Rfam assigns this 169-nucleotide RNA sequence from Kazachstania africana to the family "Small nucleolar RNA snR8". The family's RNA type in Rfam is H/ACA-box small nucleolar RNA. The family is grouped with related families in Rfam's "SNORA56 clan". The match comes from Rfam's covariance-model search (158 bits).
RNA sequence: CCGAUACAUAUUAUUUAUGCAUUCUAUUCACUGUGCCAUCUUUAAUCUUGAUAGAUGAUCAGAGGGGAAAAGAAUAGCUAGAGAAAAUUAUAGCAUGAGCGUCCUCAUACUGUCUAAAGUAAUAUACUUCAUUUUGGCUUUAGUCGGUAACUGCGCAAGUGAUACAUAC
Dot-bracket structure: ..................((.((.......((.((.(((((...........)))))..)).))........))..)).............(.(((..(((........(((.(((((((................))))))).)))......)))..))).)......